[Rfam]
RNA sequence: CCCCGGGUUGAAACCCGGGGCUACCGAUCUAUCGCCCCUACGGGGCU
Numbered sequence: 001c002c003c004c005g006g007g008u009u010g011a012a013a014c015c016c017g018g019g020g021c022u023a024c025c026g027a028u029c030u031a032u033c034g035c036c037c038c039u040a041c042g043g044g045g046c047u
Base pairs, nucleotide, nucleotide: 001020002019003018004017005016006015007014008013034046035045036044037043038042
RNA: Acido-Lenti-1 RNA